This 359-nucleotide RNA sequence from Tindallia californiensis belongs to the Rfam family "transfer-messenger RNA".
From the family's description: Bacterial tmRNA, also known as 10Sa RNA or SsrA, is named for its dual tRNA and mRNA-like properties. Its role is to liberate the mRNA from a stalled ribosome. To accomplish this part of the tmRNA is used as a reading frame that ends in a translation stop signal. The broken mRNA is replaced in the ribosome by the tmRNA and translation of the tmRNA leads to addition of a proteolysis tag to the incomplete protein enabling recognition by a protease.
RNA sequence: GGGGGCGUAAUGGUUUCGACGGGGGUUUGGAGUUUUCGUAAGCGAGCCGUGUUUUGUUUCGGGUACACGUAAAAGAACGGAACAACUAAAGAUAAACGCAGACAAUAAUUACGCGUUAGCUGCCUAAUAUAAGGUAGCUCGUUGCGCCUGGAUGUCCCGUCAUUCAGGGUCGUGACGUCAUUUAAACGGGGAACGUCGCAAAGGGUGCCUUGACUUUGCGUUGUACAAUCAAGGCUGGUCAAAUCCGCAGUUUGCUACUGAACGGCGGAGGAGAUGAGAAUCCAAAACAGUAGCUGUGCUCGGAGAAAGCGACGACAAAGAGCCUUCGGACAGGAGUUCGACUCUCCUCGCCUCCACCA
Numbered sequence: 001g002g003g004g005g006c007g008u009a010a011u012g013g014u015u016u017c018g019a020c021g022g023g024g025g026u027u028u029g030g031a032g033u034u035u036u037c038g039u040a041a042g043c044g045a046g047c048c049g050u051g052u053u054u055u056g057u058u059u060c061g062g063g064u065a066c067a068c069g070u071a072a073a074a075g076a077a078c079g080g081a082a083c084a085a086c087u088a089a090a091g092a093u094a095a096a097c098g099c100a101g102a103c104a105a106u107a108a109u110u111a112c113g114c115g116u117u118a119g120c121u122g123c124c125u126a127a128u129a130u131a132a133g134g135u136a137g138c139u140c141g142u143u144g145c146g147c148c149u150g151g152a153u154g155u156c157c158c159g160u161c162a163u164u165c166a167g168g169g170u171c172g173u174g175a176c177g178u179c180a181u182u183u184a185a186a187c188g189g190g191g192a193a194c195g196u197c198g199c200a201a202a203g204g205g206u207g208c209c210u211u212g213a214c215u216u217u218g219c220g221u222u223g224u225a226c227a228a229u230c231a232a233g234g235c236u237g238g239u240c241a242a243a244u245c246c247g248c249a250g251u252u253u254g255c256u257a258c259u260g261a262a263c264g265g266c267g268g269a270g271g272a273g274a275u276g277a278g279a280a281u282c283c284a285a286a287a288c289a290g291u292a293g294c295u296g297u298g299c300u301c302g303g304a305g306a307a308a309g310c311g312a313c314g315a316c317a318a319a320g321a322g323c324c325u326u327c328g329g330a331c332a333g334g335a336g337u338u339c340g341a342c343u344c345u346c347c348u349c350g351c352c353u354c355c356a357c358c359a
Stems, first nucleotide, its partner, number of pairs: 001355007020328009032316003036312004043302005048069005055084007118139006140177006147167001150164002155192004194223002197220006207235005238275003244269004250263003254294004259287001332348005
The family's consensus secondary structure is taken from published work.
It scores 179 bits against the family's covariance model.